[Rfam]
RNA sequence: UACACCCCCGACGGUUGAAACACCGUUUAAUCGCCCUUAUGGGAAGGAUGAGUGGAAAUAUAAGCCGAUGCAGACCAUCCCGUUCCGGCGGUCGUACCGGUAAGGAUGGAGGCGAAUAGAA
Numbered sequence: 001u002a003c004a005c006c007c008c009c010g011a012c013g014g015u016u017g018a019a020a021c022a023c024c025g026u027u028u029a030a031u032c033g034c035c036c037u038u039a040u041g042g043g044a045a046g047g048a049u050g051a052g053u054g055g056a057a058a059u060a061u062a063a064g065c066c067g068a069u070g071c072a073g074a075c076c077a078u079c080c081c082g083u084u085c086c087g088g089c090g091g092u093c094g095u096a097c098c099g100g101u102a103a104g105g106a107u108g109g110a111g112g113c114g115a116a117u118a119g120a121a
Stems, first nucleotide, its partner, number of pairs: 003054003010027006031048002034043003064113003075109006084100002088095002
Shown here is a 121-nucleotide RNA sequence, a member of the family "RT-4 RNA". It is annotated as a small RNA. Pairs were carried over by alignment from the consensus structure, which is taken from published work. Rfam's curators put it in the seed alignment.